MIR5225 microRNA precursor family: a 103-nucleotide RNA from Lupinus albus. The family's consensus secondary structure was predicted with RNAalifold. The organism belongs to Lupinus, within Eukaryota.

[Rfam]
RNA sequence: UACAGGAACUUCUGUCGCAGGAGAGAUGACCCCUUCUGUUAUUAACGACAAUAUAGUAUAUAGCAGAAGUUGUCAUCUCUACUCGGCAGAAGUCCCUUCACUU
Numbered sequence: 001u002a003c004a005g006g007a008a009c010u011u012c013u014g015u016c017g018c019a020g021g022a023g024a025g026a027u028g029a030c031c032c033c034u035u036c037u038g039u040u041a042u043u044a045a046c047g048a049c050a051a052u053a054u055a056g057u058a059u060a061u062a063g064c065a066g067a068a069g070u071u072g073u074c075a076u077c078u079c080u081a082c083u084c085g086g087c088a089g090a091a092g093u094c095c096c097u098u099c100a101c102u103u
Stems, first nucleotide, its partner, number of pairs: 005095003009092004014087004019083002023079007